About this RNA
A member of the RNA family "mir-8904 microRNA precursor family" from Canis lupus, 98 nucleotides long. The family has 2 seed sequences and 207 matches in Rfam 15.1.
RNA sequence: CCUAGGGCUCCCCGGGACACUAACAGCACCUGCGCCCCGGGGAGAGUGCGCCGAGCUCCCUAAGGGCUGCAGCGCGCAUGGCUGGACCGGGAGCAGCU
Number, nucleotide and partner (000 for none) at each position: 001c000002c000003u000004a000005g000006g000007g094008c093009u092010c091011c090012c089013c000014g088015g087016g000017a000018c084019a083020c081021u080022a079023a000024c000025a000026g075027c074028a000029c000030c072031u071032g070033c069034g067035c066036c065037c064038c000039g061040g060041g059042g058043a057044g056045a000046g000047u053048g052049c000050g000051c000052c048053g047054a000055g000056c044057u043058c042059c041060c040061u039062a000063a000064g037065g036066g035067c034068u000069g033070c032071a031072g030073c000074g027075c026076g000077c000078a000079u022080g021081g020082c000083u019084g018085g000086a000087c015088c014089g012090g011091g010092a009093g008094c007095a000096g000097c000098u000
Description
It is one of the family's seed sequences.